Notes
Small nucleolar RNA snoR100: a 108-nucleotide RNA sequence from Rhododendron simsii. Its family is annotated with nucleolus and RNA processing in the Gene Ontology. The base pairs follow the family's consensus structure, which was predicted with WAR. NCBI's taxonomy places the organism under Eukaryota, eudicotyledons, Pentapetalae, Ericaceae, Rhododendron. For this family Rfam cites "Experimental RNomics: identification of 140 candidates for small non-messenger RNAs in the plant Arabidopsis thaliana" (Marker et al., Curr Biol, 2002). By type it is an H/ACA-box small nucleolar RNA.

[Rfam]
RNA sequence: GAAUGAAGGAAGCAUGGUAAUUUGCACAAAAAGUUGAUUUGGUUCUCUGGGCUUGCCCUCUCUGAUGCCUUUCGGCUUUGAUUUGGGGAAUGGUUCUGUAGCAAAACA
Numbered sequence: 001g002a003a004u005g006a007a008g009g010a011a012g013c014a015u016g017g018u019a020a021u022u023u024g025c026a027c028a029a030a031a032a033g034u035u036g037a038u039u040u041g042g043u044u045c046u047c048u049g050g051g052c053u054u055g056c057c058c059u060c061u062c063u064g065a066u067g068c069c070u071u072u073c074g075g076c077u078u079u080g081a082u083u084u085g086g087g088g089a090a091u092g093g094u095u096c097u098g099u100a101g102c103a104a105a106a107c108a
Base pairs, nucleotide, nucleotide: 012025013024014023041091043089044088045087051082053080055076056075057074